[Rfam]
RNA sequence: ACCAUUGAGCCAUCUCUCCAGCCCCAUUGAAUUUUUUUUAAGAUACUAAUGAUGGGGCUGGAGAGAUGGUUCAGUGGU
Numbered sequence: 001a002c003c004a005u006u007g008a009g010c011c012a013u014c015u016c017u018c019c020a021g022c023c024c025c026a027u028u029g030a031a032u033u034u035u036u037u038u039u040a041a042g043a044u045a046c047u048a049a050u051g052a053u054g055g056g057g058c059u060g061g062a063g064a065g066a067u068g069g070u071u072c073a074g075u076g077g078u
Stems, first nucleotide, its partner, number of pairs: 002077023
Rfam assigns this 78-nucleotide sequence from Nannospalax galili to the family "mir-3473 microRNA precursor family". A search with the family's covariance model found it, with a score of 76 bits. The family has 5 seed sequences and 1,094 matches in Rfam 15.1. Taxonomically the source falls in Nannospalax (Eukaryota, Euteleostomi, Euarchontoglires, Muroidea).